[Rfam]
RNA: Molybdenum/Tungsten riboswitch aptamer (Moco RNA motif)
RNA sequence: CAAUUCAAUAUUCUCCGAGCCCCUGCGCCUACGGCUUUGCUAUGGCGCCCGGGCCGUGGACGCCUCCACGGUGUCCUUUCAGGGUCUGUGCUGGAAACGGACAGGCCUUCCGUGUUUGAGAAGGAGAGGUUUUUUCAGGCUG
Numbered sequence: 001c002a003a004u005u006c007a008a009u010a011u012u013c014u015c016c017g018a019g020c021c022c023c024u025g026c027g028c029c030u031a032c033g034g035c036u037u038u039g040c041u042a043u044g045g046c047g048c049c050c051g052g053g054c055c056g057u058g059g060a061c062g063c064c065u066c067c068a069c070g071g072u073g074u075c076c077u078u079u080c081a082g083g084g085u086c087u088g089u090g091c092u093g094g095a096a097a098c099g100g101a102c103a104g105g106c107c108u109u110c111c112g113u114g115u116u117u118g119a120g121a122a123g124g125a126g127a128g129g130u131u132u133u134u135u136c137a138g139g140c141u142g
Stems, first nucleotide, its partner, number of pairs: 011128006019054004025048005033041003056078001058076007082108008091100003109119002